RNA: mir-166 microRNA precursor family
Organism: Papaver somniferum
RNA sequence: GUUGUGGGGAAUGUUGUCUGACUCGAUUCUUUCAUCACAUUCAUAAUAGUUCUUCUUUCUUCUGUUGAUGAUAGUAGAUAUGAUGAUGAUGAGAUGAUCAUUAAGGCAUCGGACCAGGCUUCAUUCCCUACAAA
Numbered sequence: 001g002u003u004g005u006g007g008g009g010a011a012u013g014u015u016g017u018c019u020g021a022c023u024c025g026a027u028u029c030u031u032u033c034a035u036c037a038c039a040u041u042c043a044u045a046a047u048a049g050u051u052c053u054u055c056u057u058u059c060u061u062c063u064g065u066u067g068a069u070g071a072u073a074g075u076a077g078a079u080a081u082g083a084u085g086a087u088g089a090u091g092a093g094a095u096g097a098u099c100a101u102u103a104a105g106g107c108a109u110c111g112g113a114c115c116a117g118g119c120u121u122c123a124u125u126c127c128c129u130a131c132a133a134a
Base pairs, nucleotide, nucleotide: 002133003132004131005130006129007128008127009126010125011124012123013122016119017118018117019116020115024111025110026109